[Rfam]
Nucleotides: 133
Stems, first nucleotide, its partner, number of pairs: 002066001004064005011058005019046008074123005080117002087111003091107004
Number, partner (000 for none) and nucleotide at each position: 001000g002066c003000c004064c005063u006062c007061c008060c009000g010000g011058c012057u013056c014055u015054g016000c017000a018000u019046g020045g021044u022043u023042g024041c025040a026039c027000u028000u029000g030000c031000u032000u033000c034000u035000a036000a037000a038000c039026g040025u041024g042023u043022g044021g045020c046019u047000u048000u049000c050000g051000u052000a053000u054015u055014g056013g057012g058011g059000a060008g061007g062006g063005a064004g065000a066002g067000a068000a069000a070000g071000g072000a073000g074123c075122u076121u077120c078119u079000c080117g081116a082000a083000g084000c085000c086000u087111g088110g089109a090000g091107u092106g093105g094104c095000c096000u097000c098000g099000c100000g101000g102000u103000a104094g105093c106092c107091g108000c109089u110088c111087u112000g113000u114000c115000c116081u117080c118000g119078a120077g121076g122075g123074g124000c125000g126000c127000g128000a129000c130000a131000g132000c133000c
Record summary
Small nucleolar RNA SNORA64/SNORA10 family: a 133-nucleotide RNA sequence from Erinaceus europaeus. The family's consensus secondary structure is taken from published work. Rfam describes the family as follows. This family belongs to the H/ACA class of small nucleolar RNAs (snoRNAs) which act as guides in the the modification of uridines to pseudouridines. The source organism's lineage runs through Eukaryota, Sarcopterygii, Mammalia, Theria and Erinaceus. Gene Ontology terms of the family: nucleolus and RNA processing.